Small nucleolar RNA SNORD46: a 108-nucleotide sequence from Atractosteus spatula.
Rfam classes the family as a C/D-box small nucleolar RNA.
The organism belongs to Atractosteus, within Eukaryota.
Rfam's curators write: U40 is a C/D box small nucleolar RNA, also known as snoZ153 in plants. The human sequence has also been annotated in the sequence databases as U46. U40 is encoded in intron 2 of the ribosomal protein S8 gene in human, and is hypothesised to guide methylation of 2'-O-ribose residues on 28S ribosomal RNA. This family represents vertebrate U40.
Gene Ontology terms of the family: nucleolus and RNA processing.
The match comes from Rfam's covariance-model search (58 bits).
Rfam 15.1 lists 723 matches to the family in 611 species.
A reference for the family is Nicoloso et al. (1996), "Intron-encoded, antisense small nucleolar RNAs: the characterization of nine novel species points to their direct role as guides for the 2'-O-ribose methylation of rRNAs", J Mol Biol.

RNA sequence: AAUGUGCGUGAUGAAAACGUGACCUUAGGCGGGUUUCGUUUUUGAUCGUUUUGAUCAAUGCCUCGACCUGCCAAUGUUGGGACUUGUCAUAGUUACACUGAUCACAUU
Numbered sequence: 001a002a003u004g005u006g007c008g009u010g011a012u013g014a015a016a017a018c019g020u021g022a023c024c025u026u027a028g029g030c031g032g033g034u035u036u037c038g039u040u041u042u043u044g045a046u047c048g049u050u051u052u053g054a055u056c057a058a059u060g061c062c063u064c065g066a067c068c069u070g071c072c073a074a075u076g077u078u079g080g081g082a083c084u085u086g087u088c089a090u091a092g093u094u095a096c097a098c099u100g101a102u103c104a105c106a107u108u
Stems, first nucleotide, its partner, number of pairs: 001108006